This 106-nucleotide RNA from Plutella xylostella belongs to the Rfam family "mir-8517 microRNA precursor family". Gene Ontology terms of the family: RISC complex and miRNA-mediated post-transcriptional gene silencing. The organism belongs to Plutella, within Eukaryota. The match comes from Rfam's covariance-model search (84 bits).

RNA sequence: UUAUAGGACGUUUUAGCUAUUGAACUUUUGUCCCUCUCUGUCAAAGAACAAUUUGUUCUAAGGAAGAUGGGCACAAAACAGUUCAAUAGCUAAAAUGUCCUAUAAC
Numbered sequence: 001u002u003a004u005a006g007g008a009c010g011u012u013u014u015a016g017c018u019a020u021u022g023a024a025c026u027u028u029u030g031u032c033c034c035u036c037u038c039u040g041u042c043a044a045a046g047a048a049c050a051a052u053u054u055g056u057u058c059u060a061a062g063g064a065a066g067a068u069g070g071g072c073a074c075a076a077a078a079c080a081g082u083u084c085a086a087u088a089g090c091u092a093a094a095a096u097g098u099c100c101u102a103u104a105a106c
Base pairs, nucleotide, nucleotide: 001105002104003103004102005101006100011095012094013093014092015091016090017089018088019087020086021085022084023083024082025081026080028078029067031065033063034062035061047057048056049055050054
Dot-bracket structure: ((((((....((((((((((((((((.((.(.(((...........((((...))))...))).).)..........).))))))))))))))))....)))))).